[Rfam]
RNA sequence: AAAGCGAUCGCCGAAAAGCUUUUAAGAGAGUAGGCC
Numbered sequence: 001a002a003a004g005c006g007a008u009c010g011c012c013g014a015a016a017a018g019c020u021u022u023u024a025a026g027a028g029a030g031u032a033g034g035c036c
Stems, first nucleotide, its partner, number of pairs: 002021004010035003
Rfam assigns this 36-nucleotide sequence from marine bacterium AO1-C to the family "DUF805b RNA". The match comes from Rfam's covariance-model search (39 bits).